[Rfam]
RNA: Mason-Pfizer monkey virus packaging signal
Organism: Theropithecus gelada
RNA sequence: AGGGACUCCGUGAGGAAGAGGACGCCAAAGGACGGUCGACCGCUAACAAAGACAAAAGAAAUUAAACUUUUCCGAUCACCGCGGGAACCUGCCACGUCUGAAUCGAAGGUAAGUGACGCGUCCGAAAUGGGACAAGAAUUAAGUCAACAUCAAAUUUAUGUAGGACAAUUAAAAGAGGCUUUAAAGAUACGAGGAGUAAAGGUUAAAGGUAAUGAUUUGUUUAAAUUUUUUGAUUUUGUGAAAGACACUUGCCCUU
Numbered sequence: 001a002g003g004g005a006c007u008c009c010g011u012g013a014g015g016a017a018g019a020g021g022a023c024g025c026c027a028a029a030g031g032a033c034g035g036u037c038g039a040c041c042g043c044u045a046a047c048a049a050a051g052a053c054a055a056a057a058g059a060a061a062u063u064a065a066a067c068u069u070u071u072c073c074g075a076u077c078a079c080c081g082c083g084g085g086a087a088c089c090u091g092c093c094a095c096g097u098c099u100g101a102a103u104c105g106a107a108g109g110u111a112a113g114u115g116a117c118g119c120g121u122c123c124g125a126a127a128u129g130g131g132a133c134a135a136g137a138a139u140u141a142a143g144u145c146a147a148c149a150u151c152a153a154a155u156u157u158a159u160g161u162a163g164g165a166c167a168a169u170u171a172a173a174a175g176a177g178g179c180u181u182u183a184a185a186g187a188u189a190c191g192a193g194g195a196g197u198a199a200a201g202g203u204u205a206a207a208g209g210u211a212a213u214g215a216u217u218u219g220u221u222u223a224a225a226u227u228u229u230u231u232g233a234u235u236u237u238g239u240g241a242a243a244g245a246c247a248c249u250u251g252c253c254c255u256u
Base pairs, nucleotide, nucleotide: 009021011019066110067109068108070107071106076102077100078099080096081095083093084092118133121131122130123129124128140183141182142181143179144178145177190232191231192230193229194228195227196226197225200218201217202216203215204214205213241256242255244253246251